[Rfam]
RNA sequence: GAAAGCAGGCGAGGUGGUUGCGGCCGAUCUCUUUGAGUGUCGGCUGAGGAAAGUCCGGGCUCCCUGAUGGCCAGGCUUGCUGGGUAACGCCCAGUGCGGGUGACCGUGAGGAGAGUGCCACAGAAACACACCGCCGAUGGCCGGUUCGCCGGCACAGGCAAGGGUGCAAAGGUGCGGUAAGAGCGCACCAGCAGCAUCGAGAGGUGCUGGCUCGGUAAACCCCGGCUGGGAGCAAGGCCAAGGAACGACGGCUGGCCAUUGGCCCCGUUCCGCUUGAACGCGCCGCUUGAGGCCGUCGGUAACGGCGGUCCCAGAUAGAUAACCACCCACCCUCUGCAGACCAAACUCUGUGAGGCGUGAACAGAACCCGGCUUAUGUCCUGCUUUCACCA
Number, nucleotide and partner (000 for none) at each position: 001g387002a386003a385004a384005g383006c382007a381008g380009g379010c000011g376012a000013g327014g326015u325016g324017g323018u322019u321020g000021c046022g045023g044024c043025c042026g041027a040028u039029c000030u000031c000032u000033u000034u000035g000036a000037g000038u000039g028040u027041c026042g025043g024044c023045u022046g021047a000048g000049g000050a000051a374052a373053g372054u000055c371056c370057g369058g368059g367060c232061u231062c230063c229064c000065u000066g000067a000068u000069g259070g000071c000072c000073a000074g227075g226076c225077u000078u224079g223080c094081u093082g092083g091084g090085u000086a000087a000088c000089g000090c084091c083092c082093a081094g080095u109096g107097c106098g105099g104100g000101u000102g000103a000104c099105c098106g097107u096108g000109a095110g222111g221112a000113g000114a000115g220116u219117g216118c215119c214120a000121c000122a000123g000124a000125a000126a000127c000128a000129c000130a000131c163132c162133g159134c158135c157136g000137a000138u000139g000140g153141c152142c151143g150144g149145u000146u000147c000148g000149c144150c143151g142152g141153c140154a000155c000156a000157g135158g134159c133160a000161a000162g132163g131164g000165u000166g000167c000168a000169a000170a000171g189172g188173u187174g186175c185176g184177g000178u000179a000180a000181g000182a000183g000184c176185g175186c174187a173188c172189c171190a000191g211192c209193a208194g207195c206196a205197u204198c203199g000200a000201g000202a000203g198204g197205u196206g195207c194208u193209g192210g000211c191212u000213c000214g119215g118216u117217a000218a000219a116220c115221c111222c110223c079224g078225g076226c075227u074228g000229g063230g062231a061232g060233c000234a000235a000236g284237g283238c282239c000240a000241a000242g271243g270244a269245a268246c267247g266248a000249c000250g264251g263252c262253u261254g260255g000256c000257c000258a000259u069260u254261g253262g252263c251264c250265c000266c247267g246268u245269u244270c243271c242272g000273c000274u000275u000276g000277a000278a000279c000280g000281c000282g238283c237284c236285g000286c000287u000288u000289g000290a000291g310292g309293c308294c307295g306296u305297c304298g303299g000300u000301a000302a000303c298304g297305g296306c295307g294308g293309u292310c291311c000312c000313a000314g000315a000316u000317a000318g000319a000320u000321a019322a018323c017324c016325a015326c014327c013328c000329a000330c000331c000332c000333u000334c000335u000336g000337c000338a000339g000340a000341c000342c000343a000344a000345a000346c000347u000348c000349u000350g000351u000352g000353a000354g000355g000356c000357g000358u000359g000360a000361a000362c000363a000364g000365a000366a000367c059368c058369c057370g056371g055372c053373u052374u051375a000376u011377g000378u000379c009380c008381u007382g006383c005384u004385u003386u002387c001388a000389c000390c000391a000